Small nucleolar RNA SNORA57: a 131-nucleotide RNA sequence from Cyprinus carpio.
The family's RNA type in Rfam is H/ACA-box small nucleolar RNA.
The literature on the family includes a 2003 paper in Nucleic Acids Res by Vitali et al., "Identification of 13 novel human modification guide RNAs".
About the family: U99 belongs to the H/ACA class of snoRNAs which are thought to guide the sites of modification of uridines to pseudouridines, the target for this family is unknown.
Pairs were carried over by alignment from the consensus structure, which was predicted with PFOLD.
NCBI's taxonomy places the organism under Eukaryota, Deuterostomia, Actinopterygii, Cyprinus, Cyprinus carpio.

RNA sequence: CCUCCUUUUGUUGGCAUAUUUUGGUUCAGUACAGGUGUGUAAUGGGUAGAGGUAAAGAAAUGCCAGUGCUUUGUCUUCGAUGCCAGCAUGUUUAUUGUCUGCUGGUUCUACCCUCAAUCAUUGGAACAAGC
Numbered sequence: 001c002c003u004c005c006u007u008u009u010g011u012u013g014g015c016a017u018a019u020u021u022u023g024g025u026u027c028a029g030u031a032c033a034g035g036u037g038u039g040u041a042a043u044g045g046g047u048a049g050a051g052g053u054a055a056a057g058a059a060a061u062g063c064c065a066g067u068g069c070u071u072u073g074u075c076u077u078c079g080a081u082g083c084c085a086g087c088a089u090g091u092u093u094a095u096u097g098u099c100u101g102c103u104g105g106u107u108c109u110a111c112c113c114u115c116a117a118u119c120a121u122u123g124g125a126a127c128a129a130g131c
Base pairs, nucleotide, nucleotide: 001052002051003050004049015039016038017037018036019035020034064123065122066121067120068119083105084104085103086102087101088100090099